[Rfam]
RNA sequence: CUUCAGGGAGCCCAGCCACAGCGGGGCGUCCUGCGGCCGCUCCUGGCCGUACGUGGCGAGCAGGGCCUGCGCCUC
Numbered sequence: 001c002u003u004c005a006g007g008g009a010g011c012c013c014a015g016c017c018a019c020a021g022c023g024g025g026g027c028g029u030c031c032u033g034c035g036g037c038c039g040c041u042c043c044u045g046g047c048c049g050u051a052c053g054u055g056g057c058g059a060g061c062a063g064g065g066c067c068u069g070c071g072c073c074u075c
Stems, first nucleotide, its partner, number of pairs: 016025002032071003038065001043060002047056003
RNA: ASpks TB sRNA
Organism: Streptomyces triculaminicus